Shown here is a 75-nucleotide RNA from Ananas comosus, a member of the family "Small nucleolar RNA Z105". The family has 11 seed sequences and 621 matches in Rfam 15.1. Rfam links the family to the GO terms nucleolus and RNA processing. Rfam classes the family as a C/D-box small nucleolar RNA. Lineage of the source: Eukaryota > Streptophyta > Euphyllophyta > Bromeliaceae > Ananas.

[Rfam]
RNA sequence: AGGGCAUGGUGAUGAAGCUUUUGGUGUUCUGAGAUUUUCAUCUUUGAUGAAUCCAAACCCUCCUACUCAUUCUGA
Number, nucleotide and partner (000 for none) at each position: 001a000002g000003g000004g000005c000006a070007u069008g068009g067010u000011g000012a000013u000014g000015a000016a000017g000018c000019u000020u000021u000022u000023g000024g000025u000026g000027u050028u049029c000030u000031g042032a000033g000034a000035u000036u000037u000038u000039c000040a000041u000042c031043u000044u000045u000046g000047a000048u000049g028050a027051a000052u000053c000054c000055a000056a000057a000058c000059c000060c000061u000062c000063c000064u000065a000066c000067u009068c008069a007070u006071u000072c000073u000074g000075a000